nuoG RNA: a 42-nucleotide sequence from Cronobacter sakazakii. By type it is a cis-regulatory element. Lineage of the source: Bacteria > Pseudomonadota > Gammaproteobacteria > Cronobacter > Cronobacter sakazakii. It is one of the family's seed sequences.
[Rfam]
RNA sequence: GCAUUUUGAUUAACGCCUGGCUCGCGCCAGGCCAACUGGAAG
Numbered sequence: 001g002c003a004u005u006u007u008g009a010u011u012a013a014c015g016c017c018u019g020g021c022u023c024g025c026g027c028c029a030g031g032c033c034a035a036c037u038g039g040a041a042g
Base pairs, nucleotide, nucleotide: 015032016031017030018029019028020027021026